[Rfam]
RNA: SAM riboswitch aptamer (S box leader)
Organism: Aquiflexum balticum
RNA sequence: GAUUUAUACAGAAGAGGUAAGAGACAGGCUCGAUGACCCUCUGGCAACCAUUCGAUUCGUUGAAAAGGUGCCAAUUCCUGCCAAAUGGGAAUAUUACCAUUUGGAACUAUAAAUU
Numbered sequence: 001g002a003u004u005u006a007u008a009c010a011g012a013a014g015a016g017g018u019a020a021g022a023g024a025c026a027g028g029c030u031c032g033a034u035g036a037c038c039c040u041c042u043g044g045c046a047a048c049c050a051u052u053c054g055a056u057u058c059g060u061u062g063a064a065a066a067g068g069u070g071c072c073a074a075u076u077c078c079u080g081c082c083a084a085a086u087g088g089g090a091a092u093a094u095u096a097c098c099a100u101u102u103g104g105a106a107c108u109a110u111a112a113a114u115u
Stems, first nucleotide, its partner, number of pairs: 001115008013042005021031003025080004043072004048068002051063002081104008